RNA sequence: AAUCUGUCAUGGAUAGUCUAGUGGGAGGUCAGCCGUUAAGACAAUAACCUUGCUUAGGUUCUCCACACCAGCGGGACCGGUGCCUGGUACGAAUCCUGGGGUCGUCGUUGUACUCGUGCGAGUAAUCCACGAUCGCUGCAACGCGCUAAGCAAUGGAGAUGAUUCUUGAGGGAAGCAAUUCUGCAGAGACAUCUCCACCCUGGGGUGGCGUCGCCAGAAUACACCGACCCGUUACAGGGAAGUUGGCUACUUGGUUGGACAACCACAUAUCUCUU
Numbered sequence: 001a002a003u004c005u006g007u008c009a010u011g012g013a014u015a016g017u018c019u020a021g022u023g024g025g026a027g028g029u030c031a032g033c034c035g036u037u038a039a040g041a042c043a044a045u046a047a048c049c050u051u052g053c054u055u056a057g058g059u060u061c062u063c064c065a066c067a068c069c070a071g072c073g074g075g076a077c078c079g080g081u082g083c084c085u086g087g088u089a090c091g092a093a094u095c096c097u098g099g100g101g102u103c104g105u106c107g108u109u110g111u112a113c114u115c116g117u118g119c120g121a122g123u124a125a126u127c128c129a130c131g132a133u134c135g136c137u138g139c140a141a142c143g144c145g146c147u148a149a150g151c152a153a154u155g156g157a158g159a160u161g162a163u164u165c166u167u168g169a170g171g172g173a174a175g176c177a178a179u180u181c182u183g184c185a186g187a188g189a190c191a192u193c194u195c196c197a198c199c200c201u202g203g204g205g206u207g208g209c210g211u212c213g214c215c216a217g218a219a220u221a222c223a224c225c226g227a228c229c230c231g232u233u234a235c236a237g238g239g240a241a242g243u244u245g246g247c248u249a250c251u252u253g254g255u256u257g258g259a260c261a262a263c264c265a266c267a268u269a270u271c272u273c274u275u
Stems, first nucleotide, its partner, number of pairs: 002014003021266004029258007039248002042245004048239003052069001054067001057064002072231004077226001079225004084217005089211003093206009103145001106143007114132005120127002146150001154197007164189004172181003
Description
The family of this 275-nucleotide sequence from Aspergillus alliaceus is "Fungal signal recognition particle RNA". The family's consensus secondary structure is taken from published work. Clan: SRP clan. The organism belongs to Aspergillus subgen. Circumdati, within Eukaryota. A reference for the family is Wild et al. (2002), "Towards the structure of the mammalian signal recognition particle", Curr Opin Struct Biol. By type it is a non-coding RNA gene.